The family of this 316-nucleotide RNA sequence from Rhabdornis inornatus is "7SK RNA". The base pairs follow the family's consensus structure, which is taken from published work. By type it is a non-coding RNA gene. A reference for the family is Blencowe (2002), "Transcription: surprising role for an elusive small nuclear RNA", Curr Biol. It scores 107 bits against the family's covariance model. Taxonomically the source falls in Rhabdornis (Eukaryota, Saurischia, Theropoda, Rhabdornithidae).
RNA sequence: GGAUGUGAGGGCAGUCUGGCUGCAACAUCUGUCACCCCACUGAUGACCAGGUUGAUUGAGCUGACCUGUCUGGCUUGGUGGGUGUCCACUUCCUCCUCAAUGCUCCAUGUGCAUCCCUACCAAAGCUGCACACCUGUUGAAGAGGGUGAUCUUCCCCAUGGAGAUGUUGUUCAUCGGUCAAGGGCAUACAGUAGCCCUGCCCCCUGCUGGAACCACCCUCCAAACAAGGUUUAUGGCUAUUUAUGCUGUAACUGCAGUUUCUCUAAUGAUUUUGCAGUGACCUGACAGAGAUCUAAAGAAAAUCUUUUCUGAGUGG
Numbered sequence: 001g002g003a004u005g006u007g008a009g010g011g012c013a014g015u016c017u018g019g020c021u022g023c024a025a026c027a028u029c030u031g032u033c034a035c036c037c038c039a040c041u042g043a044u045g046a047c048c049a050g051g052u053u054g055a056u057u058g059a060g061c062u063g064a065c066c067u068g069u070c071u072g073g074c075u076u077g078g079u080g081g082g083u084g085u086c087c088a089c090u091u092c093c094u095c096c097u098c099a100a101u102g103c104u105c106c107a108u109g110u111g112c113a114u115c116c117c118u119a120c121c122a123a124a125g126c127u128g129c130a131c132a133c134c135u136g137u138u139g140a141a142g143a144g145g146g147u148g149a150u151c152u153u154c155c156c157c158a159u160g161g162a163g164a165u166g167u168u169g170u171u172c173a174u175c176g177g178u179c180a181a182g183g184g185c186a187u188a189c190a191g192u193a194g195c196c197c198u199g200c201c202c203c204c205u206g207c208u209g210g211a212a213c214c215a216c217c218c219u220c221c222a223a224a225c226a227a228g229g230u231u232u233a234u235g236g237c238u239a240u241u242u243a244u245g246c247u248g249u250a251a252c253u254g255c256a257g258u259u260u261c262u263c264u265a266a267u268g269a270u271u272u273u274g275c276a277g278u279g280a281c282c283u284g285a286c287a288g289a290g291a292u293c294u295a296a297a298g299a300a301a302a303u304c305u306u307u308u309c310u311g312a313g314u315g316g
Base pairs, nucleotide, nucleotide: 001106002105003104006099007098008097009096010095011094013091014090018089025085026084027083028082029081030080031079032078033077035073036072038068039067042066044064047060114164115163116161117160121136122135125133138158139157144155145154146153194259196257199253204248206246207245215240220236221235222234282316283315284314286311287310288309289308290304291303292302294300